[Rfam]
RNA sequence: AAUUCUGUUCGUAAGAACAAGAUAAGCGAUCUAGUCUAUACCCGAUAAGUACCAUACGCAAGGAAG
Number, nucleotide and partner (000 for none) at each position: 001a000002a000003u021004u020005c000006u019007g018008u017009u016010c015011g000012u000013a000014a000015g010016a009017a008018c007019a006020a004021g003022a000023u000024a000025a000026g000027c000028g000029a000030u000031c000032u000033a000034g000035u000036c000037u000038a000039u000040a000041c000042c000043c063044g000045a000046u000047a000048a000049g057050u056051a055052c000053c000054a000055u051056a050057c049058g000059c000060a000061a000062g000063g043064a000065a000066g000
Shown here is a 66-nucleotide sequence from Musa balbisiana, a member of the family "Plastid-clpP 5UTR RNA". The base pairs follow the family's consensus structure, which was predicted with LocARNA. Lineage of the source: Eukaryota > Mesangiospermae > Petrosaviidae > Musaceae > Musa. The match comes from Rfam's covariance-model search (57 bits). Rfam classes the family as a cis-regulatory element. Plastid clpP is a non-coding RNA (ncRNA) recognised in plastids.